[Rfam]
RNA: mir-33 microRNA precursor family
RNA sequence: UGAUUGUGCAUUGUAGUUGCAUUGCAUUGUGCAAUAUUUGCAGUGUUUCUGCAAUGCAAUAAUUA
Dot-bracket structure: ((((..((((((((((..(.((((((............)))))).)..))))))))))...))))